[Rfam]
RNA sequence: GAGCAGGGCACUUAGGGUUCCGUUCGGCAAUCGCCGAGGUCUGGUCCGAGAAGUGUCGCCGCGGGGGCAAACUCUUCCACGGUACACGGCGGGCCAAAAUCCCGGGAGGU
Number, nucleotide and partner (000 for none) at each position: 001g000002a000003g000004c000005a000006g000007g057008g056009c055010a054011c053012u052013u000014a000015g047016g046017g000018u000019u000020c044021c043022g041023u038024u037025c036026g035027g034028c033029a000030a000031u000032c000033g028034c027035c026036g025037a024038g023039g000040u000041c022042u000043g021044g020045u000046c016047c015048g000049a000050g000051a000052a012053g011054u010055g009056u008057c007058g083059c082060c081061g080062c000063g078064g077065g076066g075067g074068c000069a000070a000071a000072c000073u000074c067075u066076u065077c064078c063079a000080c061081g060082g059083u058084a000085c105086a000087c108088g000089g000090c000091g103092g102093g101094c000095c000096a000097a000098a000099a000100u000101c093102c092103c091104g000105g085106g000107a000108g087109g000110u000
A member of the RNA family "Guanidine-I riboswitch aptamer" from Tropicimonas sp. IMCC6043, 110 nucleotides long. The family has 100 seed sequences and 1,509 matches in Rfam 15.1. The match comes from Rfam's covariance-model search (83 bits). About the family: This family represents a conserved RNA structure found upstream of the ykkC and yxkD genes in Bacillus subtilis and related genes in other bacteria.